[Rfam]
RNA: small nucleolar RNA snoR134
RNA sequence: CUACACGAUGCUAACCCCAGGCUCGUCGGGUUUUUUCAAGAAGGAAGCCCGAAUUCCUAUGCUAGAUCCACCAUGCCAUUUAAUGUUGCAGGUCAUGACGAAUCUUGUGAUUGGUCUGUGUCAAAGCAAUGGAUACACAU
Numbered sequence: 001c002u003a004c005a006c007g008a009u010g011c012u013a014a015c016c017c018c019a020g021g022c023u024c025g026u027c028g029g030g031u032u033u034u035u036u037c038a039a040g041a042a043g044g045a046a047g048c049c050c051g052a053a054u055u056c057c058u059a060u061g062c063u064a065g066a067u068c069c070a071c072c073a074u075g076c077c078a079u080u081u082a083a084u085g086u087u088g089c090a091g092g093u094c095a096u097g098a099c100g101a102a103u104c105u106u107g108u109g110a111u112u113g114g115u116c117u118g119u120g121u122c123a124a125a126g127c128a129a130u131g132g133a134u135a136c137a138c139a140u
Base pairs, nucleotide, nucleotide: 004061005060007058010056020049021048022047023046024044026041027040076132077131078130079129080128084123085122087120088119089118090117091116092115093110094109095108